[Rfam]
The record is an 83-nucleotide sequence from Streptomyces sp. Ag109_O5-10, which matches "ZMP/ZTP riboswitch aptamer (pfl RNA motif)" in Rfam. Pairs were carried over by alignment from the consensus structure, which is taken from published work.

RNA sequence: AGGGCGGGCCGUGACUGGCGCUGAGGUGGAGCACCACCGGGGAGCGGUCCGCAGUGUCGUUGCCGUGCGCCUGGGCGAUCAAG
Numbered sequence: 001a002g003g004g005c006g007g008g009c010c011g012u013g014a015c016u017g018g019c020g021c022u023g024a025g026g027u028g029g030a031g032c033a034c035c036a037c038c039g040g041g042g043a044g045c046g047g048u049c050c051g052c053a054g055u056g057u058c059g060u061u062g063c064c065g066u067g068c069g070c071c072u073g074g075g076c077g078a079u080c081a082a083g
Stems, first nucleotide, its partner, number of pairs: 004052009015041002017071005026037004060078005